[Rfam]
RNA sequence: GGUGUAAAGGGAGCGUAGGCGGGAUGGCAAGUCAGAUGUGAAAACUAUGGGCUCAACCCAUAGACUGCAUUUGAAACUGUUGUUCUUGAGUGAGGUAGAGGUAAGCGGAAUUCCUGGUGUAGCGGUGAAAUGCGUAGAGAUCAGGAGGAACAUCGGUGGCGAAGGCGGCUUACUGGGCCUUUACUGACGCUGAGGCUCGAAAGCGUGGGGAGCAAACAGGAUUAGAUACCCUGGUAGUCCACGCCGUAAACGAUGAUUACUAGGUGUGGGGGGACUGACCCCUUCCGUGCCGCAGUUAACACAAUAAGUAAUCCACCUGGGGAGUACGGCCGCAAGGUUGAAACUCAAAGGAAU
Numbered sequence: 001g002g003u004g005u006a007a008a009g010g011g012a013g014c015g016u017a018g019g020c021g022g023g024a025u026g027g028c029a030a031g032u033c034a035g036a037u038g039u040g041a042a043a044a045c046u047a048u049g050g051g052c053u054c055a056a057c058c059c060a061u062a063g064a065c066u067g068c069a070u071u072u073g074a075a076a077c078u079g080u081u082g083u084u085c086u087u088g089a090g091u092g093a094g095g096u097a098g099a100g101g102u103a104a105g106c107g108g109a110a111u112u113c114c115u116g117g118u119g120u121a122g123c124g125g126u127g128a129a130a131u132g133c134g135u136a137g138a139g140a141u142c143a144g145g146a147g148g149a150a151c152a153u154c155g156g157u158g159g160c161g162a163a164g165g166c167g168g169c170u171u172a173c174u175g176g177g178c179c180u181u182u183a184c185u186g187a188c189g190c191u192g193a194g195g196c197u198c199g200a201a202a203g204c205g206u207g208g209g210g211a212g213c214a215a216a217c218a219g220g221a222u223u224a225g226a227u228a229c230c231c232u233g234g235u236a237g238u239c240c241a242c243g244c245c246g247u248a249a250a251c252g253a254u255g256a257u258u259a260c261u262a263g264g265u266g267u268g269g270g271g272g273g274a275c276u277g278a279c280c281c282c283u284u285c286c287g288u289g290c291c292g293c294a295g296u297u298a299a300c301a302c303a304a305u306a307a308g309u310a311a312u313c314c315a316c317c318u319g320g321g322g323a324g325u326a327c328g329g330c331c332g333c334a335a336g337g338u339u340g341a342a343a344c345u346c347a348a349a350g351g352a353a354u
Stems, first nucleotide, its partner, number of pairs: 001317003009314001011198004016192001018191003022085007030078002032074009045063007089185003092181005100174007107151001111147008122133003159166002203244006212238002217233004255313006263291011295302002319346003328339004
RNA: Bacterial small subunit ribosomal RNA, nucleotides 541 to 894
Organism: Ruminococcus sp. OM06-36AC